[Rfam]
Rfam assigns this 107-nucleotide RNA from Pan troglodytes to the family "Y RNA". The base pairs follow the family's consensus structure, which is taken from published work. The match comes from Rfam's covariance-model search (53 bits). It is annotated as a non-coding RNA gene.

RNA sequence: GGCUGGUCUGAGUACAGUGGUAUUUAUUAAUACAACUAAUUAAUCACAACCAGCUACAGAAUUCUUUGUUCCUUCUCCACUCCCGUUGCUUCACUUGACUGUCUUAA
Dot-bracket structure: (((.((((.((....(((((.................(((.((.....................)).)))............))))).......)))))))))....
Numbered sequence: 001g002g003c004u005g006g007u008c009u010g011a012g013u014a015c016a017g018u019g020g021u022a023u024u025u026a027u028u029a030a031u032a033c034a035a036c037u038a039a040u041u042a043a044u045c046a047c048a049a050c051c052a053g054c055u056a057c058a059g060a061a062u063u064c065u066u067u068g069u070u071c072c073u074u075c076u077c078c079a080c081u082c083c084c085g086u087u088g089c090u091u092c093a094c095u096u097g098a099c100u101g102u103c104u105u106a107a
Stems, first nucleotide, its partner, number of pairs: 001103003005100004010096002016087005038070003042066002